[Rfam]
RNA sequence: ACUUUCCUUGUCUUGGGGUGGCUUGAGAUACUCUAUGAACGUCUAGUGAGAGUAACUCUGCUAACACCAUAAUCGACACAUUCGCAUCACCUGAACCUCGUGUUCGGGCAAUGGUGCAAUUUUUGGAACA
Numbered sequence: 001a002c003u004u005u006c007c008u009u010g011u012c013u014u015g016g017g018g019u020g021g022c023u024u025g026a027g028a029u030a031c032u033c034u035a036u037g038a039a040c041g042u043c044u045a046g047u048g049a050g051a052g053u054a055a056c057u058c059u060g061c062u063a064a065c066a067c068c069a070u071a072a073u074c075g076a077c078a079c080a081u082u083c084g085c086a087u088c089a090c091c092u093g094a095a096c097c098u099c100g101u102g103u104u105c106g107g108g109c110a111a112u113g114g115u116g117c118a119a120u121u122u123u124u125g126g127a128a129c130a
Stems, first nucleotide, its partner, number of pairs: 006018004021061002027056001029054005039047002084117006090108006

A member of the RNA family "U4atac minor spliceosomal RNA" from Gadus morhua, 130 nucleotides long.
Rfam describes the family as follows. U4atac is an essential component of the minor U12-type spliceosome complex which is required for removal of the rarer class of eukaryotic introns (AT-AC, U12-type).
The organism belongs to Gadus, within Eukaryota.
By type it is a spliceosomal small nuclear RNA.
Clan: U4 clan.